Notes
Shown here is a 322-nucleotide RNA from Anaerosporomusa subterranea, a member of the family "Bacterial RNase P class B". A reference for the family is Frank and Pace (1998), "Ribonuclease P: unity and diversity in a tRNA processing ribozyme", Annu Rev Biochem. The match comes from Rfam's covariance-model search (188 bits). The source organism's lineage runs through Bacteria, Bacillati, Bacillota, Negativicutes and Anaerosporomusa. It is annotated as a ribozyme.

RNA sequence: AUUAGGGUUGAUACGGUACUCGGUCUGUUGAGGAAAGUCCAUACUUCCACAGCCUGCGAUGGCUGUAGUGUUCGUGCCUGUCGCAAGACAGGGCGGGAGAUAUCUCCCGACGACGGCAAAAGCGGCUCACGUAGUCGCCAGUAGCUAUAAAGUGCCACAGAAACGAUACAGGUCGGCGACGGCCUGGUGCAAAGGUAAACUCCACGAGGAAGAAACCCAGUGUGUAGGGGAGCCCUCCGAAAGGAAACCGAACGGACGGAGGGGACAGCAGCUCGUCUGCUGUCAGAGAAAUGAUUCCUAGAACAGAAAAUGGCUUACGGCU
Numbered sequence: 001a002u003u004a005g006g007g008u009u010g011a012u013a014c015g016g017u018a019c020u021c022g023g024u025c026u027g028u029u030g031a032g033g034a035a036a037g038u039c040c041a042u043a044c045u046u047c048c049a050c051a052g053c054c055u056g057c058g059a060u061g062g063c064u065g066u067a068g069u070g071u072u073c074g075u076g077c078c079u080g081u082c083g084c085a086a087g088a089c090a091g092g093g094c095g096g097g098a099g100a101u102a103u104c105u106c107c108c109g110a111c112g113a114c115g116g117c118a119a120a121a122g123c124g125g126c127u128c129a130c131g132u133a134g135u136c137g138c139c140a141g142u143a144g145c146u147a148u149a150a151a152g153u154g155c156c157a158c159a160g161a162a163a164c165g166a167u168a169c170a171g172g173u174c175g176g177c178g179a180c181g182g183c184c185u186g187g188u189g190c191a192a193a194g195g196u197a198a199a200c201u202c203c204a205c206g207a208g209g210a211a212g213a214a215a216c217c218c219a220g221u222g223u224g225u226a227g228g229g230g231a232g233c234c235c236u237c238c239g240a241a242a243g244g245a246a247a248c249c250g251a252a253c254g255g256a257c258g259g260a261g262g263g264g265a266c267a268g269c270a271g272c273u274c275g276u277c278u279g280c281u282g283u284c285a286g287a288g289a290a291a292u293g294a295u296u297c298c299u300a301g302a303a304c305a306g307a308a309a310a311u312g313g314c315u316u317a318c319g320g321c322u
Base pairs, nucleotide, nucleotide: 004322005321007318008294009293013028014027015026016025035316036315037314039313040312041311042310044212045211046210047209048208049066050065051064052063053062054061072207073206074205075204076203077092078091079090080089081088082087093111094109095108096107097106098105099104112202113201115146116145117144123137124136125135126134152200153199154196155195156194169186170185171184172183173182174181175180216229217228218227233263234262235261236260237259238258239257264284265283266282267281268280269279270278271277